[Rfam]
RNA sequence: GGAUGUGAAGGCGAUCUGGCUACGACAUCUGUCACCCCAUUGAUCGCCAGGGUUGAUUUAGCUGAUCUGGCUGGCUAGUCGGGUGUCCCCUUCCUCCCUCACCGCUCCAUGUGCAUCCUUCCCGAAGCUGCAUGCUCAGUUGAAGAGGACAACCUUCCCCGAUAGAGGAGGACUUCUUUGGUAGCUGCACUUCCCUGCUAGAACCUCCAAAUAAGCUCUCAAGGUCCAUUUGUAGGAGAACAUAGGUUAGUCAAGCUUCUAAGACUCUAGACACAUCCAAAUGAGGUGCUCAUUU
Numbered sequence: 001g002g003a004u005g006u007g008a009a010g011g012c013g014a015u016c017u018g019g020c021u022a023c024g025a026c027a028u029c030u031g032u033c034a035c036c037c038c039a040u041u042g043a044u045c046g047c048c049a050g051g052g053u054u055g056a057u058u059u060a061g062c063u064g065a066u067c068u069g070g071c072u073g074g075c076u077a078g079u080c081g082g083g084u085g086u087c088c089c090c091u092u093c094c095u096c097c098c099u100c101a102c103c104g105c106u107c108c109a110u111g112u113g114c115a116u117c118c119u120u121c122c123c124g125a126a127g128c129u130g131c132a133u134g135c136u137c138a139g140u141u142g143a144a145g146a147g148g149a150c151a152a153c154c155u156u157c158c159c160c161g162a163u164a165g166a167g168g169a170g171g172a173c174u175u176c177u178u179u180g181g182u183a184g185c186u187g188c189a190c191u192u193c194c195c196u197g198c199u200a201g202a203a204c205c206u207c208c209a210a211a212u213a214a215g216c217u218c219u220c221a222a223g224g225u226c227c228a229u230u231u232g233u234a235g236g237a238g239a240a241c242a243u244a245g246g247u248u249a250g251u252c253a254a255g256c257u258u259c260u261a262a263g264a265c266u267c268u269a270g271a272c273a274c275a276u277c278c279a280a281a282u283g284a285g286g287u288g289c290u291c292a293u294u295u
Stems, first nucleotide, its partner, number of pairs: 001108003005102004010097002013093002018090002024087008033078001035074002037070003042067004046062002116171002118168004122139001124137002127135002140162003147158003184256003190250002194246004205238004211233005

This 295-nucleotide RNA sequence from Marmota marmota belongs to the Rfam family "7SK RNA". By type it is a non-coding RNA gene. 7SK was discovered as an abundant small nuclear RNA in the mid-70s but a possible function has only recently been suggested. NCBI's taxonomy places the organism under Eukaryota, Bilateria, Mammalia, Eutheria, Marmota marmota.